Annotation: The family of this 63-nucleotide RNA sequence from Medicago truncatula is "MIR5285 microRNA precursor family". Lineage of the source: Eukaryota > Tracheophyta > Euphyllophyta > eudicotyledons > Medicago.

RNA sequence: GAGAUUGGGACUUUGGGUAGAAUUAGGCGAGAGACUUAUUCUUGUAACCCAUUGAUAUCUCUU
Numbered sequence: 001g002a003g004a005u006u007g008g009g010a011c012u013u014u015g016g017g018u019a020g021a022a023u024u025a026g027g028c029g030a031g032a033g034a035c036u037u038a039u040u041c042u043u044g045u046a047a048c049c050c051a052u053u054g055a056u057a058u059c060u061c062u063u
Stems, first nucleotide, its partner, number of pairs: 001061005011054001014051005019042005025036002